tRNA: an 87-nucleotide RNA sequence from Mobiluncus mulieris. Rfam classes the family as a transfer RNA. The match comes from Rfam's covariance-model search (56 bits). Transfer RNA (tRNA) molecules are approximately 80 nucleotides in length.

RNA sequence: GGAGACGUGGCUGAGCGGCCGAAAGCGGCACCCUGCUAAGGUGUUAGGGGCAUCCGUCCCUCGCAGGUUCAAAUCCUGUCGUCUCCG
Numbered sequence: 001g002g003a004g005a006c007g008u009g010g011c012u013g014a015g016c017g018g019c020c021g022a023a024a025g026c027g028g029c030a031c032c033c034u035g036c037u038a039a040g041g042u043g044u045u046a047g048g049g050g051c052a053u054c055c056g057u058c059c060c061u062c063g064c065a066g067g068u069u070c071a072a073a074u075c076c077u078g079u080c081g082u083c084u085c086c087g
Stems, first nucleotide, its partner, number of pairs: 001086007010026003028044005063079005